[Rfam]
RNA sequence: UCCACCGCGAGGUGGAAUCUGAAGGAAGUCGGAGGCAAAUCUCUGGUCUGAGGUACACGAAUUGCAUUCGAGGCUUAUUCUUGUGGGUGAGUUUGCAUAACAAAACAAAGCCCAAUAACUACCCGAAAACAAGGAAAGUAAAUGCAACAGAUAUGUGGAGAGAAAGUUUGCGCU
Number, nucleotide and partner (000 for none) at each position: 001u016002c015003c014004a013005c012006c011007g000008c000009g000010a000011g006012g005013u004014g003015g002016a001017a000018u000019c000020u000021g000022a000023a000024g000025g000026a000027a000028g174029u000030c172031g171032g000033a000034g000035g167036c166037a000038a000039a000040u161041c160042u159043c158044u157045g156046g152047u151048c150049u149050g148051a000052g000053g000054u000055a000056c000057a000058c000059g000060a000061a000062u147063u146064g145065c144066a143067u142068u000069c000070g000071a000072g000073g139074c138075u137076u000077a000078u135079u134080c133081u132082u131083g130084u129085g113086g112087g111088u110089g000090a000091g106092u105093u104094u103095g000096c000097a000098u000099a000100a000101c000102a000103a094104a093105a092106c091107a000108a000109a000110g088111c087112c086113c085114a000115a000116u000117a000118a000119c000120u000121a000122c000123c000124c000125g000126a000127a000128a000129a084130c083131a082132a081133g080134g079135a078136a000137a075138g074139u073140a000141a000142a067143u066144g065145c064146a063147a062148c050149a049150g048151a047152u046153a000154u000155g000156u045157g044158g043159a042160g041161a040162g000163a000164a000165a000166g036167u035168u000169u000170g000171c031172g030173c000174u028